A member of the RNA family "Small nucleolar RNA snoR138" from Papaver nudicaule, 149 nucleotides long. Its family is annotated with nucleolus and RNA processing in the Gene Ontology. The family's consensus secondary structure was predicted with mfold. A search with the family's covariance model found it, with a score of 55 bits. By type it is an H/ACA-box small nucleolar RNA. NCBI's taxonomy places the organism under Eukaryota, Viridiplantae, Euphyllophyta, Mesangiospermae, Papaver.
RNA sequence: UUUGCCUUCGAAUAACUGGAUGUGGAAAUUUGAGACCACAUUCGGUUCAGACAAGGCAUAUAAUAAAGAUACGAGGGGGAAUUGUGUUGGAAUUGAUUUCUUCACUUUUCCAUUUUCUCUUGAAUCAAUCUUAAUGGAGAGGAAUGAUU
Numbered sequence: 001u002u003u004g005c006c007u008u009c010g011a012a013u014a015a016c017u018g019g020a021u022g023u024g025g026a027a028a029u030u031u032g033a034g035a036c037c038a039c040a041u042u043c044g045g046u047u048c049a050g051a052c053a054a055g056g057c058a059u060a061u062a063a064u065a066a067a068g069a070u071a072c073g074a075g076g077g078g079g080a081a082u083u084g085u086g087u088u089g090g091a092a093u094u095g096a097u098u099u100c101u102u103c104a105c106u107u108u109u110c111c112a113u114u115u116u117c118u119c120u121u122g123a124a125u126c127a128a129u130c131u132u133a134a135u136g137g138a139g140a141g142g143a144a145u146g147a148u149u
Stems, first nucleotide, its partner, number of pairs: 003058005014047008023038003072142001075119003080114003084111001090108003094104002126141001129138002